[Rfam]
RNA: SAM riboswitch aptamer (S box leader)
Organism: Salinibacillus xinjiangensis
RNA sequence: CGCUUAUCAAGAGUGGAUGAGAGAACUGGCUCGUUGAUUCCACAGCAACCUACUUAACAAAAGUAAGGUGCUCCCACCAGCAAAGCAAAAAAGCUUUGAGUGAUAAGGA
Numbered sequence: 001c002g003c004u005u006a007u008c009a010a011g012a013g014u015g016g017a018u019g020a021g022a023g024a025a026c027u028g029g030c031u032c033g034u035u036g037a038u039u040c041c042a043c044a045g046c047a048a049c050c051u052a053c054u055u056a057a058c059a060a061a062a063g064u065a066a067g068g069u070g071c072u073c074c075c076a077c078c079a080g081c082a083a084a085g086c087a088a089a090a091a092a093g094c095u096u097u098g099a100g101u102g103a104u105a106a107g108g109a
Base pairs, nucleotide, nucleotide: 003107004106005105006104007103008102013043014042015041016040017039021032022031023030026080027079028078029077044072045071046070047069049068050067051065052064053063054062076101081098082097083096084095085094086093